[Rfam]
The family of this 99-nucleotide RNA from Chondrocystis sp. NIES-4102 is "TPP riboswitch aptamer (THI element)". The match comes from Rfam's covariance-model search (60 bits). The source organism's lineage runs through Bacteria, Cyanobacteriota, Chroococcales, Chroococcaceae and Chondrocystis. The family has 115 seed sequences and 16,130 matches in Rfam 15.1.
RNA sequence: CUUUAUAGCUAGGGGUGCCAAAACACAUAUAAGGCUGAGAUAUACCCUAAGAACCUGAGACUGGUUAGCACCAGCGGAGGGAAGCUGUUUAUUGAGGAA
Numbered sequence: 001c002u003u004u005a006u007a008g009c010u011a012g013g014g015g016u017g018c019c020a021a022a023a024c025a026c027a028u029a030u031a032a033g034g035c036u037g038a039g040a041u042a043u044a045c046c047c048u049a050a051g052a053a054c055c056u057g058a059g060a061c062u063g064g065u066u067a068g069c070a071c072c073a074g075c076g077g078a079g080g081g082a083a084g085c086u087g088u089u090u091a092u093u094g095a096g097g098a099a
Base pairs, nucleotide, nucleotide: 006087007086008085009084010083011048012047013046014045016042017035018034019033054080055079056078061074062073063072064071
Dot-bracket structure: .....(((((((((.((((.............)))......)..)))).....(((....((((......))))...)))..)))))............